The record is a 75-nucleotide RNA sequence, which matches "mir-192/215 microRNA precursor family" in Rfam. A search with the family's covariance model found it, with a score of 55 bits. Rfam describes the family as follows. This family represents the human microRNA (miRNA) precursors mir-192 and mir-215.

RNA sequence: AGAUCUAGUUGACCUAUAAAAAAGGCUGCCUCUUUUCUGAAAAGAGGCAGCCUUUUUUAUAGGUCAACUAGAUCU
Numbered sequence: 001a002g003a004u005c006u007a008g009u010u011g012a013c014c015u016a017u018a019a020a021a022a023a024g025g026c027u028g029c030c031u032c033u034u035u036u037c038u039g040a041a042a043a044g045a046g047g048c049a050g051c052c053u054u055u056u057u058u059a060u061a062g063g064u065c066a067a068c069u070a071g072a073u074c075u
Stems, first nucleotide, its partner, number of pairs: 001075008010066002013063004018057002021055012